[Rfam]
RNA sequence: AGGGCUACUGUAAACAUCCUUGACUGGAAGCUGGUGUUAGGUUUUUGGGCUUUCAGUCGGAUGUUUGCAGCAGCCAA
Numbered sequence: 001a002g003g004g005c006u007a008c009u010g011u012a013a014a015c016a017u018c019c020u021u022g023a024c025u026g027g028a029a030g031c032u033g034g035u036g037u038u039a040g041g042u043u044u045u046u047g048g049g050c051u052u053u054c055a056g057u058c059g060g061a062u063g064u065u066u067g068c069a070g071c072a073g074c075c076a077a
Base pairs, nucleotide, nucleotide: 003075004074005073006072008070009069010068011067012066013065014064015063016062017061018060019059023057024056025055026054027053028052029051030050031049032048
RNA: mir-30 microRNA precursor family
Organism: Poecilia formosa